Rfam assigns this 110-nucleotide RNA sequence from Halalkalibacter krulwichiae to the family "epsC RNA". Taxonomically the source falls in Halalkalibacter (Bacteria, Bacillati, Bacilli, Caryophanales).
RNA sequence: UGGCAAUGUCUCCUUGCCAUUAUCGAUGGAGGCACUCGGUCACGCUGUGGGUGGACAACCUUAGACGCGAAGUCGUCGCUGGUGUGAUGUGAGGAGGGGUUAGAUGCCUC
Numbered sequence: 001u002g003g004c005a006a007u008g009u010c011u012c013c014u015u016g017c018c019a020u021u022a023u024c025g026a027u028g029g030a031g032g033c034a035c036u037c038g039g040u041c042a043c044g045c046u047g048u049g050g051g052u053g054g055a056c057a058a059c060c061u062u063a064g065a066c067g068c069g070a071a072g073u074c075g076u077c078g079c080u081g082g083u084g085u086g087a088u089g090u091g092a093g094g095a096g097g098g099g100u101u102a103g104a105u106g107c108c109u110c
Stems, first nucleotide, its partner, number of pairs: 001019004007034007035093004039088008049061004064077004096110005
Rfam 15.1 lists 450 matches to the family in 334 species. The family's RNA type in Rfam is cis-regulatory element.